[Rfam]
RNA sequence: ACCGAGACUAGUGUCACGUCUAGACAUUGCCCAUUGUCAUAGUUGUGCUUGAGUACUCGGAAAGUAACAACUAAUCUCUGUUCACUGACUGUCACUACUUUCAGGUCAGUCAGUCAGUCACUGGGUUAGUAACAGAA
Numbered sequence: 001a002c003c004g005a006g007a008c009u010a011g012u013g014u015c016a017c018g019u020c021u022a023g024a025c026a027u028u029g030c031c032c033a034u035u036g037u038c039a040u041a042g043u044u045g046u047g048c049u050u051g052a053g054u055a056c057u058c059g060g061a062a063a064g065u066a067a068c069a070a071c072u073a074a075u076c077u078c079u080g081u082u083c084a085c086u087g088a089c090u091g092u093c094a095c096u097a098c099u100u101u102c103a104g105g106u107c108a109g110u111c112a113g114u115c116a117g118u119c120a121c122u123g124g125g126u127u128a129g130u131a132a133c134a135g136a137a
Stems, first nucleotide, its partner, number of pairs: 002060005007054003013048001015047004020042001023038004071129007084118005090112002093109001
Description: The family of this 137-nucleotide RNA from Mauremys mutica is "Small nucleolar RNA SNORA3/SNORA45 family". A reference for the family is Huttenhofer et al. (2001), "RNomics: an experimental approach that identifies 201 candidates for novel, small, non-messenger RNAs in mouse", EMBO J. Rfam classes the family as an H/ACA-box small nucleolar RNA. The family is grouped with related families in Rfam's "SNORA3 clan". The match comes from Rfam's covariance-model search (73 bits). Rfam's curators write: The members of this family belong to the H/ACA class of snoRNAs which are thought to guide the sites of modification of uridines to pseudouridines. This family includes mouse snoMBI-28 and human homologues ACA3 (SNORA3) and ACA3-2 (SNORA45). Both ACA3 and ACA3-2 share the same host gene. MBI-28, ACA3 and ACA3-2 are all predicted to guide the pseudouridylation of residues in 28S rRNA. Rfam 15.1 lists 2,080 matches to the family in 639 species.